[Rfam]
RNA sequence: GGUCCGACACCGCCGAGUCGCUCACGAGCGAGCCGGGGACCCAGGUACCCCGGGGUGAAUCCGCAGUCCCUGCGGUAGGGCGCCCCUUCCCGCCCGAACCCGUCAGCUAACCCGGUAGGCGGUACGGAAGAAGGA
Numbered sequence: 001g002g003u004c005c006g007a008c009a010c011c012g013c014c015g016a017g018u019c020g021c022u023c024a025c026g027a028g029c030g031a032g033c034c035g036g037g038g039a040c041c042c043a044g045g046u047a048c049c050c051c052g053g054g055g056u057g058a059a060u061c062c063g064c065a066g067u068c069c070c071u072g073c074g075g076u077a078g079g080g081c082g083c084c085c086c087u088u089c090c091c092g093c094c095c096g097a098a099c100c101c102g103u104c105a106g107c108u109a110a111c112c113c114g115g116u117a118g119g120c121g122g123u124a125c126g127g128a129a130g131a132a133g134g135a
Stems, first nucleotide, its partner, number of pairs: 011121004018031003032116006042052001053101003061075004078095004
Dot-bracket structure: ..........((((...(((........)))((((((....(.........)(((.....((((.......))))..((((..........))))...))).........)))))).))))..............
This 135-nucleotide RNA from Micromonospora echinofusca belongs to the Rfam family "c-di-AMP riboswitch aptamer (ydaO/yuaA leader)".
A search with the family's covariance model found it, with a score of 92 bits.
The pairing is the family consensus, mapped onto this sequence.